Shown here is a 107-nucleotide RNA sequence from Molossus molossus, a member of the family "Vault RNA". A search with the family's covariance model found it, with a score of 50 bits. Lineage of the source: Eukaryota > Deuterostomia > Boreoeutheria > Yangochiroptera > Molossus.
RNA sequence: GGGCUCGCUUUAGCUCAGCAGUUCCUUCAAGUCAAGCCAAGUUCACUUGUCAACCACUCUUGCUUGCAAAGAUGGUUUGAGACUGGAGGGCACUCUCUAGUCCUUUA
Numbered sequence: 001g002g003g004c005u006c007g008c009u010u011u012a013g014c015u016c017a018g019c020a021g022u023u024c025c026u027u028c029a030a031g032u033c034a035a036g037c038c039a040a041g042u043u044c045a046c047u048u049g050u051c052a053a054c055c056a057c058u059c060u061u062g063c064u065u066g067c068a069a070a071g072a073u074g075g076u077u078u079g080a081g082a083c084u085g086g087a088g089g090g091c092a093c094u095c096u097c098u099a100g101u102c103c104u105u106u107a
Stems, first nucleotide, its partner, number of pairs: 002102004007097001013091004019086001021084001026081009
On this family, see Stadler et al., Mol Biol Evol 2009: "Evolution of Vault RNAs".